[Rfam]
Shown here is a 128-nucleotide RNA sequence from Hibiscus syriacus, a member of the family "MIR828 microRNA precursor family".

RNA sequence: GUAAUGUUUCUUGCUCAAAUGAGUAUUCCAAUGGCAGUUUCAUUUGCAUGUGUAUGUCUCCAUGUUUGGCUUGUAUGAUGCUUUAUGUUUCUGGUUUCUGAGAUGCUCAUUUGAGCAAGCAAUGUUAC
Numbered sequence: 001g002u003a004a005u006g007u008u009u010c011u012u013g014c015u016c017a018a019a020u021g022a023g024u025a026u027u028c029c030a031a032u033g034g035c036a037g038u039u040u041c042a043u044u045u046g047c048a049u050g051u052g053u054a055u056g057u058c059u060c061c062a063u064g065u066u067u068g069g070c071u072u073g074u075a076u077g078a079u080g081c082u083u084u085a086u087g088u089u090u091c092u093g094g095u096u097u098c099u100g101a102g103a104u105g106c107u108c109a110u111u112u113g114a115g116c117a118a119g120c121a122a123u124g125u126u127a128c
Base pairs, nucleotide, nucleotide: 004125005124006123007122008121010119011118012117013116014115015114016113017112018111019110020109021108022107023106024105025104026103027102029100030099